[Rfam]
RNA sequence: GAUGAAAAAGAAGAACUCAAUCCUAUAAUGCUGAUAAUAUGGUUCGGCAGUUUCUACAGAGUCACCGUAAAUGGCUCUACUACGAGUGAGGCCUGUAUAACA
Number, nucleotide and partner (000 for none) at each position: 001g000002a000003u000004g000005a000006a000007a000008a000009a000010g000011a000012a000013g000014a000015a000016c000017u000018c088019a087020a000021u085022c084023c000024u082025a081026u000027a000028a000029u049030g048031c047032u046033g045034a044035u000036a000037a000038u000039a000040u000041g000042g000043u000044u034045c033046g032047g031048c030049a029050g000051u000052u000053u000054c000055u000056a000057c000058a078059g077060a076061g075062u074063c073064a072065c000066c000067g000068u000069a000070a000071a000072u064073g063074g062075c061076u060077c059078u058079a000080c000081u025082a024083c000084g022085a021086g000087u019088g018089a000090g000091g000092c000093c000094u000095g000096u000097a000098u000099a000100a000101c000102a000